[Rfam]
RNA sequence: UGGAUGUGAUGAUUGAUUAUCUGAGUAAAACUGAUGAAAAAUCAAGAAAAGUCCUCUAGAUAGUCAAGUUCUGAUCCAG
Numbered sequence: 001u002g003g004a005u006g007u008g009a010u011g012a013u014u015g016a017u018u019a020u021c022u023g024a025g026u027a028a029a030a031c032u033g034a035u036g037a038a039a040a041a042u043c044a045a046g047a048a049a050a051g052u053c054c055u056c057u058a059g060a061u062a063g064u065c066a067a068g069u070u071c072u073g074a075u076c077c078a079g
Stems, first nucleotide, its partner, number of pairs: 001078004
A member of the RNA family "Small nucleolar RNA SNORD20" from Erinaceus europaeus, 79 nucleotides long. It is one of the family's seed sequences. Pairs were carried over by alignment from the consensus structure. It is annotated as a C/D-box small nucleolar RNA. For this family Rfam cites "U20, a novel small nucleolar RNA, is encoded in an intron of the nucleolin gene in mammals" (Nicoloso et al., Mol Cell Biol, 1994).